[Rfam]
RNA sequence: AAAUUUAGGUAAUCGCUGCAAAGCUUGUCUUUGUAGAGGAAAGUCCAUGCUCACACGGAUCUGAGAUGACCGUAGUGUUUAUGCUCAGCAAAAAAAUAAGCUGGGGCAUCGCAAAUAUGCGAUGACGGCGGGAAUACGUCCUAAGUUAAGCUUGCUUAAUAUGGGCUAGGUUCCCUGAACAGUGCCACAGAAACGUAGCUGCUUCGGAAACGAAUCAGGUGGAACGCGGUAAACCCCAUAAGUGAGAAACCCAAACUAUGGUAGGGGCACUCUUCGAAAGGAAAUGAACGGACGAAGGGACAGGAAAACAUUCCUGUAGAUAGAUGAUUACCACCCUAGUACGAGGCAUUCGCCGUUUGAGUACACGGGAACAAAACAUGGCUUAUCGAA
Number, nucleotide and partner (000 for none) at each position: 001a000002a000003a000004u390005u389006u388007a386008g332009g331010u330011a329012a328013u327014c326015g000016c036017u035018g034019c033020a032021a031022a000023g000024c000025u000026u000027g000028u000029c000030u000031u021032u020033g019034u018035a017036g016037a000038g000039g000040a000041a384042a383043g382044u000045c381046c380047a379048u378049g377050c246051u245052c244053a243054c242055a073056c072057g071058g070059a000060u069061c068062u000063g000064a000065g000066a000067u000068g061069a060070c058071c057072g056073u055074a000075g000076u000077g000078u000079u241080u240081a239082u238083g237084c105085u104086c103087a102088g101089c100090a000091a000092a000093a000094a000095a000096a000097u000098a000099a000100g089101c088102u087103g086104g085105g084106g126107c124108a123109u122110c121111g120112c119113a000114a000115a000116u000117a000118u000119g112120c111121g110122a109123u108124g107125a000126c106127g236128g235129c000130g175131g174132g173133a172134a000135u000136a000137c000138g166139u165140c164141c163142u000143a000144a000145g160146u159147u158148a157149a156150g155151c000152u000153u000154g000155c150156u149157u148158a147159a146160u145161a000162u000163g141164g140165g139166c138167u000168a000169g000170g000171u000172u133173c132174c131175c130176u000177g000178a000179a000180c000181a000182g234183u233184g230185c229186c228187a000188c000189a000190g000191a000192a000193a000194c000195g000196u000197a000198g000199c218200u217201g216202c000203u214204u213205c212206g211207g000208a000209a000210a000211c206212g205213a204214a203215u000216c201217a200218g199219g000220u000221g000222g000223a000224a000225c000226g000227c000228g186229g185230u184231a000232a000233a183234c182235c128236c127237c083238a082239u081240a080241a079242g054243u053244g052245a051246g050247a000248a000249a000250c266251c265252c264253a000254a000255a000256c000257u000258a000259u000260g000261g000262u000263a000264g252265g251266g250267g000268c000269a000270c299271u298272c297273u296274u295275c294276g293277a000278a000279a000280g000281g000282a000283a000284a000285u000286g000287a000288a000289c000290g000291g000292a000293c276294g275295a274296a273297g272298g271299g270300a317301c316302a315303g314304g313305a312306a000307a000308a000309c000310a000311u000312u305313c304314c303315u302316g301317u300318a000319g000320a000321u000322a000323g000324a000325u000326g014327a013328u012329u011330a010331c009332c008333a000334c369335c368336c367337u000338a000339g364340u363341a362342c361343g000344a000345g000346g000347c000348a000349u000350u000351c000352g000353c000354c000355g000356u000357u000358u000359g000360a000361g342362u341363a340364c339365a000366c000367g336368g335369g334370a000371a000372c000373a000374a000375a000376a000377c049378a048379u047380g046381g045382c043383u042384u041385a000386u007387c000388g006389a005390a004